[Rfam]
RNA: A. fumigatus sRNA Afu_254
Organism: [Emmonsia] crescens
RNA sequence: AUCCAAACACUUAACAAUUCAAACAUCUUACCGAAUUUUCAAUCAAAUUCAUCCACCAAACCCACCCAUUAAAAAUGUCUCCCUGCAACUGCAACUGCUGCUCCGGCGACUGCAACUCCUGCAACUGCAGCAGCUGCUCUGUGAGUUGAUAAAAAAC
Number, nucleotide and partner (000 for none) at each position: 001a000002u000003c000004c000005a000006a000007a000008c000009a000010c000011u000012u000013a000014a000015c000016a000017a000018u000019u000020c000021a000022a000023a000024c000025a000026u000027c000028u000029u000030a000031c000032c000033g000034a000035a000036u000037u000038u000039u000040c000041a000042a000043u000044c000045a000046a000047a000048u000049u000050c000051a000052u000053c000054c000055a000056c000057c000058a000059a000060a000061c000062c000063c000064a000065c000066c000067c000068a000069u000070u000071a000072a000073a000074a000075a000076u000077g000078u000079c000080u000081c000082c000083c000084u108085g107086c106087a000088a000089c000090u000091g101092c100093a099094a000095c000096u000097g000098c000099u093100g092101c091102u000103c000104c000105g000106g086107c085108g084109a000110c000111u000112g137113c136114a135115a000116c000117u000118c000119c000120u000121g128122c127123a000124a000125c000126u000127g122128c121129a000130g000131c000132a000133g000134c000135u114136g113137c112138u000139c000140u000141g000142u000143g000144a000145g000146u000147u000148g000149a000150u000151a000152a000153a000154a000155a000156a000157c000